[Rfam]
RNA sequence: AGCUUAUUUUGCAGCGGCGGAGCUCGACCGCCCGUUCAAAAAAUGAUCGCCUUCAUUGACGAUCAUCGGGGUACCUAUGGGGUCGAGCCGAUCUGCCGCGUUCUGCCGAUCGCCCCU
Numbered sequence: 001a002g003c004u005u006a007u008u009u010u011g012c013a014g015c016g017g018c019g020g021a022g023c024u025c026g027a028c029c030g031c032c033c034g035u036u037c038a039a040a041a042a043a044u045g046a047u048c049g050c051c052u053u054c055a056u057u058g059a060c061g062a063u064c065a066u067c068g069g070g071g072u073a074c075c076u077a078u079g080g081g082g083u084c085g086a087g088c089c090g091a092u093c094u095g096c097c098g099c100g101u102u103c104u105g106c107c108g109a110u111c112g113c114c115c116c117u
Stems, first nucleotide, its partner, number of pairs: 016032005079116004089112002092109002095106002098103001
RNA: ALIL pseudoknot
Organism: Acidisoma silvae